[Rfam]
RNA sequence: UUCGUUCAACCCUAUUAAUGGGGUCGGAAGUAGGCAUCAGCCGAAGGAACGCCUU
Numbered sequence: 001u002u003c004g005u006u007c008a009a010c011c012c013u014a015u016u017a018a019u020g021g022g023g024u025c026g027g028a029a030g031u032a033g034g035c036a037u038c039a040g041c042c043g044a045a046g047g048a049a050c051g052c053c054u055u
Stems, first nucleotide, its partner, number of pairs: 003051005009024005027052001033042003
Glutamine riboswitch aptamer (glnA leader): a 55-nucleotide sequence. On this family, see Ames and Breaker, RNA Biol 2011: "Bacterial aptamers that selectively bind glutamine". The base pairs follow the family's consensus structure, which is taken from published work.